[Rfam]
RNA sequence: ACUUCCUGAGCCGGAACGGAAAGUGUCUUGUACCUCAGGGUACCAGAGGCUUUUGGCUUUGGGUGGUGAUGUUGUGUUUGCAUUGGGUCUGUUUUUCAGACCUGCUUAAUUUCCUGUGAUAUACCCUGUCUGUCCAUAGUUUAUAUUUUUUACAGCACCGCUUUUAGCGGUGUUUUUUUUU
Numbered sequence: 001a002c003u004u005c006c007u008g009a010g011c012c013g014g015a016a017c018g019g020a021a022a023g024u025g026u027c028u029u030g031u032a033c034c035u036c037a038g039g040g041u042a043c044c045a046g047a048g049g050c051u052u053u054u055g056g057c058u059u060u061g062g063g064u065g066g067u068g069a070u071g072u073u074g075u076g077u078u079u080g081c082a083u084u085g086g087g088u089c090u091g092u093u094u095u096u097c098a099g100a101c102c103u104g105c106u107u108a109a110u111u112u113c114c115u116g117u118g119a120u121a122u123a124c125c126c127u128g129u130c131u132g133u134c135c136a137u138a139g140u141u142u143a144u145a146u147u148u149u150u151u152a153c154a155g156c157a158c159c160g161c162u163u164u165u166a167g168c169g170g171u172g173u174u175u176u177u178u179u180u181u
Base pairs, nucleotide, nucleotide: 009058010057011056012055015054016053021052022051023050024049026047027046028045030043031042032041033040034039086102087101088100089099090098091097118151119150121148154174155173156172157171158170159169160168161167

A member of the RNA family "GcvB RNA" from Tatumella morbirosei, 181 nucleotides long. By type it is a non-coding RNA gene. The source organism's lineage runs through Bacteria, Pseudomonadati, Gammaproteobacteria, Erwiniaceae and Tatumella. For this family Rfam cites "The gcvB gene encodes a small untranslated RNA involved in expression of the dipeptide and oligopeptide transport systems in Escherichia coli" (Urbanowski et al., Mol Microbiol, 2000).